[Rfam]
RNA: TPP riboswitch aptamer (THI element)
Organism: Herbidospora galbida
RNA sequence: ACAAAGACGCGCGGGAGUCCGGCUGACCGGGCUGAGAGGGGAACUCCACAGGUUCCCGACCGCUAUCGAACCUGAUCCGGAUCAUGCCGGCGAAGGGAGCGCGGAUGAACGCUUC
Numbered sequence: 001a002c003a004a005a006g007a008c009g010c011g012c013g014g015g016a017g018u019c020c021g022g023c024u025g026a027c028c029g030g031g032c033u034g035a036g037a038g039g040g041g042a043a044c045u046c047c048a049c050a051g052g053u054u055c056c057c058g059a060c061c062g063c064u065a066u067c068g069a070a071c072c073u074g075a076u077c078c079g080g081a082u083c084a085u086g087c088c089g090g091c092g093a094a095g096g097g098a099g100c101g102c103g104g105a106u107g108a109a110c111g112c113u114u115c
Stems, first nucleotide, its partner, number of pairs: 008101003011063004017032005039057007071096003077090004